[Rfam]
RNA sequence: CGGUUCCGAUGUAACUGGCGACGCUGUGGGAUUAACCACGAUGGAGCAUCGGAAUAUACGGCCGGUCGCCUGGGCACAAGAG
Numbered sequence: 001c002g003g004u005u006c007c008g009a010u011g012u013a014a015c016u017g018g019c020g021a022c023g024c025u026g027u028g029g030g031a032u033u034a035a036c037c038a039c040g041a042u043g044g045a046g047c048a049u050c051g052g053a054a055u056a057u058a059c060g061g062c063c064g065g066u067c068g069c070c071u072g073g074g075c076a077c078a079a080g081a082g
Stems, first nucleotide, its partner, number of pairs: 003055010015043001017070005026039004061075003